[Rfam]
The record is an 80-nucleotide RNA from bacterium HR28, which matches "Fluoride riboswitch aptamer (crcB RNA motif)" in Rfam. It scores 39 bits against the family's covariance model. The family's consensus secondary structure is taken from published work.

Nucleotides: 080
Base pairs, nucleotide, nucleotide: 010025011024012023013022016071017070018069019068020067021066049061050060051059052058
Number, partner (000 for none) and nucleotide at each position: 001000u002000a003000g004000u005000g006000u007000c008000a009000c010025g011024g012023c013022g014000a015000u016071g017070a018069g019068g020067c021066u022013c023012g024011c025010c026000g027000g028000g029000c030000g031000g032000u033000g034000u035000c036000a037000u038000a039000c040000c041000g042000c043000c044000a045000a046000a047000c048000c049061g050060c051059c052058g053000g054000a055000u056000u057000g058052c059051g060050g061049c062000u063000g064000a065000u066021a067020g068019c069018c070017u071016c072000u073000g074000u075000c076000c077000g078000a079000c080000c